Shown here is a 59-nucleotide RNA sequence from Mumia sp. ZJ1417, a member of the family "msiK RNA". It is annotated as a cis-regulatory element. Pairs were carried over by alignment from the consensus structure, which is taken from published work.
RNA sequence: GGUCGUCUCCACUUCACUCGGAUCGUGCGGCCCGUUCCUGCCGCUGAAGGGAUGUAUCA
Number, nucleotide and partner (000 for none) at each position: 001g000002g000003u000004c000005g000006u000007c000008u000009c000010c051011a000012c049013u048014u047015c046016a045017c000018u000019c000020g000021g000022a000023u000024c000025g000026u000027g044028c043029g042030g041031c040032c000033c000034g000035u000036u000037c000038c000039u000040g031041c030042c029043g028044c027045u016046g015047a014048a013049g012050g000051g010052a000053u000054g000055u000056a000057u000058c000059a000